c-di-AMP riboswitch aptamer (ydaO/yuaA leader): a 138-nucleotide sequence from Paenibacillus solanacearum.

RNA sequence: GAUAAGAAUACGCUUAAUUCCCGACUAUCUAUGGGCCGGGAAGCGGGGGAACCAACGAUUUUGGGGCGAAUCAGCAAUGUAGGGAACCAUCUUUCCCGAGCCCGGCAGCUAACCUCGUCAGCAGUGGAUGGGUCAAUU
Numbered sequence: 001g002a003u004a005a006g007a008a009u010a011c012g013c014u015u016a017a018u019u020c021c022c023g024a025c026u027a028u029c030u031a032u033g034g035g036c037c038g039g040g041a042a043g044c045g046g047g048g049g050a051a052c053c054a055a056c057g058a059u060u061u062u063g064g065g066g067c068g069a070a071u072c073a074g075c076a077a078u079g080u081a082g083g084g085a086a087c088c089a090u091c092u093u094u095c096c097c098g099a100g101c102c103c104g105g106c107a108g109c110u111a112a113c114c115u116c117g118u119c120a121g122c123a124g125u126g127g128a129u130g131g132g133u134c135a136a137u138u
Stems, first nucleotide, its partner, number of pairs: 012122003018042006043118006053063002064103003072079002082097004
Taxonomically the source falls in Paenibacillus (Bacteria, Bacillati, Bacillota, Caryophanales). This family represents a conserved RNA structure found upstream of the ydaO and yuaA genes in Bacillus subtilis and related genes in other bacteria. The ydaO/yuaA element is thought to act as a genetic 'off' switch for the ydaO and yuaA genes in its native state. It is believed that the element may be triggered during osmotic shock leading to activation of ydaO, a predicted amino acid transporter gene, and members of the yuaA-yubG operon which code for KtrA and KtrB K+ transporters.